[Rfam]
RNA sequence: AGGUAAUGUCUGCUGCACCUUUAUCACUGCAGGCACUCGGUCAUGCUGUGGGUUUGGCGACCUUAGACAUCAAUUGUCGAUGGUGUGACGUGAGGACGGGUUUGAUGCCCU
Number, nucleotide and partner (000 for none) at each position: 001a020002g019003g018004u017005a000006a000007u035008g034009u033010c032011u031012g030013c029014u000015g000016c000017a004018c003019c002020u001021u000022u000023a000024u000025c000026a000027c000028u000029g013030c012031a011032g010033g009034c008035a007036c094037u093038c092039g091040g089041u088042c087043a086044u085045g084046c083047u082048g000049u000050g063051g062052g061053u060054u059055u000056g000057g000058c000059g054060a053061c052062c051063u050064u000065a000066g078067a077068c076069a075070u000071c000072a000073a000074u000075u069076g068077u067078c066079g000080a000081u000082g047083g046084u045085g044086u043087g042088a041089c040090g000091u039092g038093a037094g036095g000096a000097c000098g110099g109100g108101u107102u000103u000104g000105a000106u000107g101108c100109c099110c098111u000
A member of the RNA family "epsC RNA" from Paenibacillus contaminans, 111 nucleotides long. Rfam 15.1 lists 450 matches to the family in 334 species. The source organism's lineage runs through Bacteria, Bacilli, Caryophanales, Paenibacillaceae and Paenibacillus.